Rfam assigns this 159-nucleotide RNA from Cohnella rhizosphaerae to the family "c-di-AMP riboswitch aptamer (ydaO/yuaA leader)".
RNA sequence: ACAUCCUAAUCGCUGAAUCCCGCUGAAGCGGGAACGGGGGAACCAACCGGGUGCCGCGCAUGCGCGCCCAGGGGUGAAUCGCCUGGCCCGGCCAGGCGUAGGGCUGCUUGCCGAGCCCGAAUCCGACAGCUAACCUCGCAAGCGUCCGGAAGAGGAGCC
Numbered sequence: 001a002c003a004u005c006c007u008a009a010u011c012g013c014u015g016a017a018u019c020c021c022g023c024u025g026a027a028g029c030g031g032g033a034a035c036g037g038g039g040g041a042a043c044c045a046a047c048c049g050g051g052u053g054c055c056g057c058g059c060a061u062g063c064g065c066g067c068c069c070a071g072g073g074g075u076g077a078a079u080c081g082c083c084u085g086g087c088c089c090g091g092c093c094a095g096g097c098g099u100a101g102g103g104c105u106g107c108u109u110g111c112c113g114a115g116c117c118c119g120a121a122u123c124c125g126a127c128a129g130c131u132a133a134c135c136u137c138g139c140a141a142g143c144g145u146c147c148g149g150a151a152g153a154g155g156a157g158c159c
Stems, first nucleotide, its partner, number of pairs: 011144004018033006035138005044071001072124003080098004101118004
Dot-bracket structure: ..........((((...((((((....)))))).(((((....(..........................)(((.....((((...........))))..((((..........))))...))).........)))))..))))...............